[Rfam]
RNA: Bacillaceae-1 RNA
RNA sequence: ACUUAGGGAAGAAAGGCUAAGACCGCCACGACAAUCGCCAACGCCUUUCUGACCAACAUCGUGUUGG
Numbered sequence: 001a002c003u004u005a006g007g008g009a010a011g012a013a014a015g016g017c018u019a020a021g022a023c024c025g026c027c028a029c030g031a032c033a034a035u036c037g038c039c040a041a042c043g044c045c046u047u048u049c050u051g052a053c054c055a056a057c058a059u060c061g062u063g064u065u066g067g
Base pairs, nucleotide, nucleotide: 011049012048013047014046015045016044017043025038026037053067054066055065056064057063